[Rfam]
RNA sequence: AAAGGUUGGUGGCGUUCUUCACCCUGAUGGGCGAAGUUGUCGCACACCCGUACUCUGUGCAGAUACCUCAGCCCGCUCAAGCGGGCUUUUUUAU
Numbered sequence: 001a002a003a004g005g006u007u008g009g010u011g012g013c014g015u016u017c018u019u020c021a022c023c024c025u026g027a028u029g030g031g032c033g034a035a036g037u038u039g040u041c042g043c044a045c046a047c048c049c050g051u052a053c054u055c056u057g058u059g060c061a062g063a064u065a066c067c068u069c070a071g072c073c074c075g076c077u078c079a080a081g082c083g084g085g086c087u088u089u090u091u092u093a094u
Stems, first nucleotide, its partner, number of pairs: 009043004014037003018033001020031001022029001070087007
Dot-bracket structure: ........((((.(((.(.(.(......).).).)))..))))..........................(((((((....))))))).......